[Rfam]
RNA sequence: CGGUGCGGCUUUAAGGGUCGUUGCUGAUGUGGCAGAAGUCAGCCGAGGCCAUAGUACUCACCGGAAUAUUGUCGGUGGUGGGGAAGGGC
Number, nucleotide and partner (000 for none) at each position: 001c026002g025003g000004u000005g021006c020007g019008g018009c017010u016011u015012u000013a000014a000015g011016g010017g009018u008019c007020g006021u005022u000023g000024c000025u002026g001027a000028u000029g000030u000031g000032g000033c000034a000035g000036a000037a000038g000039u046040c045041a000042g000043c000044c000045g040046a039047g000048g089049c088050c087051a000052u000053a000054g000055u000056a000057c082058u081059c080060a079061c078062c077063g000064g000065a000066a000067u000068a000069u000070u000071g000072u000073c000074g000075g000076u000077g062078g061079u060080g059081g058082g057083g000084a000085a000086g000087g050088g049089c048
Group II catalytic intron D1-D4-1: an 89-nucleotide sequence from Arthrobacter psychrolactophilus. About the family: Group II introns are found in rRNA, tRNA and mRNA of organelles in fungi, plants and protists, and also in mRNA in bacteria. The base pairs follow the family's consensus structure.